[Rfam]
RNA sequence: UUAAAAGUCUUUGGGGAGUAGCUUGCUUGUUCUUGUUGGAAGCGGAACAAGUUUGUACGUCAACAUAAUUGAUGGAUACCCAUCAUGGCGUAUGAGACUCAGUAGCCUAUAAAAAAUGAAAUCAGGCUGAGUUU
Numbered sequence: 001u002u003a004a005a006a007g008u009c010u011u012u013g014g015g016g017a018g019u020a021g022c023u024u025g026c027u028u029g030u031u032c033u034u035g036u037u038g039g040a041a042g043c044g045g046a047a048c049a050a051g052u053u054u055g056u057a058c059g060u061c062a063a064c065a066u067a068a069u070u071g072a073u074g075g076a077u078a079c080c081c082a083u084c085a086u087g088g089c090g091u092a093u094g095a096g097a098c099u100c101a102g103u104a105g106c107c108u109a110u111a112a113a114a115a116a117u118g119a120a121a122u123c124a125g126g127c128u129g130a131g132u133u134u
Stems, first nucleotide, its partner, number of pairs: 026051007053095010070085005096133007

Manganese Mn2+ riboswitch aptamer (yybP-ykoY): a 134-nucleotide RNA from Vibrio nigripulchritudo. The source organism's lineage runs through Bacteria, Pseudomonadati, Vibrionales, Vibrionaceae and Vibrio.